[Rfam]
Nucleotides: 112
Stems, first nucleotide, its partner, number of pairs: 005055007013076003017072002021068008044059004084098006
Number, partner (000 for none) and nucleotide at each position: 001000u002000a003000g004000c005055g006054c007053c008052u009051g010050c011049g012000g013076c014075g015074g016000a017072c018071c019000c020000g021068g022067c023066a024065c025064g026063g027062a028061c029000c030000u031000u032000u033000g034000g035000c036000u037000a038000u039000g040000a041000c042000c043000c044059g045058g046057c047056u048000u049011c050010g051009c052008a053007g054006g055005c056047a057046g058045c059044c060000u061028g062027u063026c064025c065024g066023u067022g068021u069000a070000c071018g072017g073000u074015c075014u076013g077000g078000u079000a080000c081000a082000a083000u084098u085097c086096c087095g088094g089093a090000a091000u092000u093089u094088c095087c096086g097085g098084a099000a100000u101000u102000u103000a104000a105000c106000g107000a108000u109000u110000u111000c112000u
Description:
This 112-nucleotide RNA sequence belongs to the Rfam family "RT-5 RNA". The sequence is in the family's curated seed alignment. The family's consensus secondary structure is taken from published work.